[Rfam]
RNA: GA-cis RNA
RNA sequence: CCAAGGAGAUGCCCAUGUGGCGAAGCCACAUCUUAAAAUGGCAUCGACGACCUAUCGCAUUGCGAAACAAUGCGAUCGUACAACGA
Numbered sequence: 001c002c003a004a005g006g007a008g009a010u011g012c013c014c015a016u017g018u019g020g021c022g023a024a025g026c027c028a029c030a031u032c033u034u035a036a037a038a039u040g041g042c043a044u045c046g047a048c049g050a051c052c053u054a055u056c057g058c059a060u061u062g063c064g065a066a067a068c069a070a071u072g073c074g075a076u077c078g079u080a081c082a083a084c085g086a
Stems, first nucleotide, its partner, number of pairs: 008045006015031006054076003058072002062068001